Nucleotides: 102
Base pairs, nucleotide, nucleotide: 032055033054034053035052036051037050038049039048040047081095082094083093084092
Number, partner (000 for none) and nucleotide at each position: 001000a002000a003000c004000c005000c006000g007000u008000u009000g010000g011000c012000a013000c014000u015000a016000c017000a018000g019000g020000g021000u022000c023000c024000a025000g026000u027000u028000u029000c030000a031000u032055a033054a034053a035052g036051c037050c038049c039048c040047g041000a042000a043000a044000u045000u046000u047040c048039g049038g050037g051036g052035u053034u054033u055032u056000u057000u058000g059000u060000u061000a062000u063000u064000u065000g066000a067000c068000a069000a070000u071000c072000g073000a074000a075000u076000u077000a078000a079000c080000u081095g082094g083093g084092c085000u086000u087000u088000u089000a090000u091000a092084g093083c094082c095081c096000u097000u098000u099000u100000u101000u102000u
The family of this 102-nucleotide sequence from Providencia stuartii is "Gammaprotebacteria rimP leader".
Pairs were carried over by alignment from the consensus structure, which is taken from published work.
Gene Ontology term of the family: regulation of gene expression.